[Rfam]
RNA sequence: GGAGAAACCACGACGCAUCGCGGCAGGAGCGGGGGAACCAGGUAAGUCGCCGACCGGGCAUCUUCAGCACGGCCGGCUUGGGGUGAAGACGCGUUACGGCGAAGGUGAUCGCUGUUCAGGACGCGGCCGGGCAACUCCUGUCCGAACCCGACAGCUCACCUCGCAGGCGUAGGAGAGGACAC
Numbered sequence: 001g002g003a004g005a006a007a008c009c010a011c012g013a014c015g016c017a018u019c020g021c022g023g024c025a026g027g028a029g030c031g032g033g034g035g036a037a038c039c040a041g042g043u044a045a046g047u048c049g050c051c052g053a054c055c056g057g058g059c060a061u062c063u064u065c066a067g068c069a070c071g072g073c074c075g076g077c078u079u080g081g082g083g084u085g086a087a088g089a090c091g092c093g094u095u096a097c098g099g100c101g102a103a104g105g106u107g108a109u110c111g112c113u114g115u116u117c118a119g120g121a122c123g124c125g126g127c128c129g130g131g132c133a134a135c136u137c138c139u140g141u142c143c144g145a146a147c148c149c150g151a152c153a154g155c156u157c158a159c160c161u162c163g164c165a166g167g168c169g170u171a172g173g174a175g176a177g178g179a180c181a182c
Stems, first nucleotide, its partner, number of pairs: 011169002014166001018028002029164006039080005081149003090125006129143004
c-di-AMP riboswitch aptamer (ydaO/yuaA leader): a 182-nucleotide sequence from Streptomyces palmae. NCBI's taxonomy places the organism under Bacteria, Actinomycetota, Kitasatosporales, Streptomycetaceae, Streptomyces.